[Rfam]
RNA sequence: AUAAUGAUACUUCCGCAAAGCGGGCCGCGCGAAGGGGCUGGUGAGAUUCCAAUGA
Numbered sequence: 001a002u003a004a005u006g007a008u009a010c011u012u013c014c015g016c017a018a019a020g021c022g023g024g025c026c027g028c029g030c031g032a033a034g035g036g037g038c039u040g041g042u043g044a045g046a047u048u049c050c051a052a053u054g055a
Stems, first nucleotide, its partner, number of pairs: 012052001013023004024038003028034001039051003